[Rfam]
RNA sequence: GGCGUUUCUCAGGUGAUGCACCCUGAAAUCGGGCUCCCUCCUCUCUGGUUCUGGGUGUGUUACCCGAGAACCGCA
Numbered sequence: 001g002g003c004g005u006u007u008c009u010c011a012g013g014u015g016a017u018g019c020a021c022c023c024u025g026a027a028a029u030c031g032g033g034c035u036c037c038c039u040c041c042u043c044u045c046u047g048g049u050u051c052u053g054g055g056u057g058u059g060u061u062a063c064c065c066g067a068g069a070a071c072c073g074c075a
Stems, first nucleotide, its partner, number of pairs: 002074002006070005012064006019057005025052001027050007
RNA: mir-9223 microRNA precursor family